[Rfam]
RNA: Mason-Pfizer monkey virus packaging signal
Organism: Sciurus vulgaris
RNA sequence: UAGCGCCUAAUGGUGUGGCUUUUGAUACGGGGAAAUUCUUGAGGGAAGAGGCAUCUAAGUGUUUGGCCGAAGAAGAAAAAAAAGUGAAAGAAAGGUCGACAAAGAUCGUCACGGGAGCCUGUCGUGACAUUCUUAAAGGUACAGUAGCACCUAAGUAUGGGACAAGAAUUAAGUAAGCAUAAAGUUUUUGUUAAGCAAUUAAAAGAAGCUUUAAGGACAUGGGGAGUAAAGGGUAAGAGUAAUGAUCUUUUUAAGUUUUUUGACCUUAUUAAGGACACCUGUCCGU
Numbered sequence: 001u002a003g004c005g006c007c008u009a010a011u012g013g014u015g016u017g018g019c020u021u022u023u024g025a026u027a028c029g030g031g032g033a034a035a036u037u038c039u040u041g042a043g044g045g046a047a048g049a050g051g052c053a054u055c056u057a058a059g060u061g062u063u064u065g066g067c068c069g070a071a072g073a074a075g076a077a078a079a080a081a082a083a084g085u086g087a088a089a090g091a092a093a094g095g096u097c098g099a100c101a102a103a104g105a106u107c108g109u110c111a112c113g114g115g116a117g118c119c120u121g122u123c124g125u126g127a128c129a130u131u132c133u134u135a136a137a138g139g140u141a142c143a144g145u146a147g148c149a150c151c152u153a154a155g156u157a158u159g160g161g162a163c164a165a166g167a168a169u170u171a172a173g174u175a176a177g178c179a180u181a182a183a184g185u186u187u188u189u190g191u192u193a194a195g196c197a198a199u200u201a202a203a204a205g206a207a208g209c210u211u212u213a214a215g216g217a218c219a220u221g222g223g224g225a226g227u228a229a230a231g232g233g234u235a236a237g238a239g240u241a242a243u244g245a246u247c248u249u250u251u252u253a254a255g256u257u258u259u260u261u262g263a264c265c266u267u268a269u270u271a272a273g274g275a276c277a278c279c280u281g282u283c284c285g286u
Stems, first nucleotide, its partner, number of pairs: 006032003013028003037049004096138001104132001105130002110126005145165001147163001150161004170213003173209002220262008230248003234244002271286001273284004